Rfam assigns this 72-nucleotide RNA sequence from Cebus imitator to the family "Small nucleolar RNA SNORD73". The match comes from Rfam's covariance-model search (85 bits). Taxonomically the source falls in Cebus (Eukaryota, Chordata, Euarchontoglires, Cebidae). Rfam classes the family as a C/D-box small nucleolar RNA. For this family Rfam cites "A novel snoRNA (U73) is encoded within the introns of the human and mouse ribosomal protein S3a genes" (Rebane et al., Gene, 1998). Pairs were carried over by alignment from the consensus structure, which was predicted with PFOLD.

RNA sequence: AAUGAAUGAGGACAAAAUGUUUCGGUCCCAUAUGAUGCAUACUGAUCAUACCGUUAGAUUUAUCCUGACGUU
Dot-bracket structure: ((((................................................................))))